Rfam assigns this 131-nucleotide RNA from Actinoplanes aureus to the family "c-di-AMP riboswitch aptamer (ydaO/yuaA leader)". This family represents a conserved RNA structure found upstream of the ydaO and yuaA genes in Bacillus subtilis and related genes in other bacteria.
RNA sequence: GGCGAACCACCGCCUAAUCGCAUCCGCGAGCCGGGGAACCAGGUACCGGGGGUGAAGCCGCGGCGACGCGGCCGGGCGUUCUUCCCGCCCGAACCCGACAGCUAACCCGGUCGGCGGCUGGAUGAGGAAGA
Numbered sequence: 001g002g003c004g005a006a007c008c009a010c011c012g013c014c015u016a017a018u019c020g021c022a023u024c025c026g027c028g029a030g031c032c033g034g035g036g037a038a039c040c041a042g043g044u045a046c047c048g049g050g051g052g053u054g055a056a057g058c059c060g061c062g063g064c065g066a067c068g069c070g071g072c073c074g075g076g077c078g079u080u081c082u083u084c085c086c087g088c089c090c091g092a093a094c095c096c097g098a099c100a101g102c103u104a105a106c107c108c109g110g111u112c113g114g115c116g117g118c119u120g121g122a123u124g125a126g127g128a129a130g131a
Stems, first nucleotide, its partner, number of pairs: 011116004018029003030111006040049001050096003058071004074090004